Background: Shown here is a 177-nucleotide sequence from Caulobacter henricii, a member of the family "caulobacter sRNA CC2171".

RNA sequence: CAACAACUGAAAGGAGGUGACCAGUGUCUCAUUGUCUCCAACCGAGGUCGCGCAUCGUGACCUGGAGCCUGAAGAUAGAGGUAUCCGCCUAGAGGCGUUGAAUCGCUCCAGGUUUCAGUCACGCCGCGCACCGCGGCCACGACGAUGGAGGGCCGUUCCGGGCGACCGGAACGGCCC
Numbered sequence: 001c002a003a004c005a006a007c008u009g010a011a012a013g014g015a016g017g018u019g020a021c022c023a024g025u026g027u028c029u030c031a032u033u034g035u036c037u038c039c040a041a042c043c044g045a046g047g048u049c050g051c052g053c054a055u056c057g058u059g060a061c062c063u064g065g066a067g068c069c070u071g072a073a074g075a076u077a078g079a080g081g082u083a084u085c086c087g088c089c090u091a092g093a094g095g096c097g098u099u100g101a102a103u104c105g106c107u108c109c110a111g112g113u114u115u116c117a118g119u120c121a122c123g124c125c126g127c128g129c130a131c132c133g134c135g136g137c138c139a140c141g142a143c144g145a146u147g148g149a150g151g152g153c154c155g156u157u158c159c160g161g162g163c164g165a166c167c168g169g170a171a172c173g174g175c176c177c
Stems, first nucleotide, its partner, number of pairs: 016022002030147007043065001046062007066082001068080001084118001089112002094107004123137005150177012
It is annotated as a small RNA.